[Rfam]
RNA sequence: GAUCUGGUAGUAUGGUAGAAAGAAAUUGAUAUCUUUCUACCAUACUUUCUAUUAUUGUAUUGUCUAAAGUUGUACUG
Numbered sequence: 001g002a003u004c005u006g007g008u009a010g011u012a013u014g015g016u017a018g019a020a021a022g023a024a025a026u027u028g029a030u031a032u033c034u035u036u037c038u039a040c041c042a043u044a045c046u047u048u049c050u051a052u053u054a055u056u057g058u059a060u061u062g063u064c065u066a067a068a069g070u071u072g073u074a075c076u077g
Base pairs, nucleotide, nucleotide: 006049007048009046010045011044012043013042014041015040016039017038018037019036020035021034022033023032